[Rfam]
RNA: c-di-GMP-II-GAG riboswitch aptamer
RNA sequence: ACAUAGUAGAGGCUAAGAUACGCGGACCGCUAAGGCGGGCACCGAGGUCCGCGAGGAGCAAGUGGUGCGACCGGCUACCGAGGAG
Numbered sequence: 001a002c003a004u005a006g007u008a009g010a011g012g013c014u015a016a017g018a019u020a021c022g023c024g025g026a027c028c029g030c031u032a033a034g035g036c037g038g039g040c041a042c043c044g045a046g047g048u049c050c051g052c053g054a055g056g057a058g059c060a061a062g063u064g065g066u067g068c069g070a071c072c073g074g075c076u077a078c079c080g081a082g083g084a085g
Base pairs, nucleotide, nucleotide: 002082004080006078007077008076009075012059013058021053022052023051024050025049026048027047037072038071039068040067041066042065043064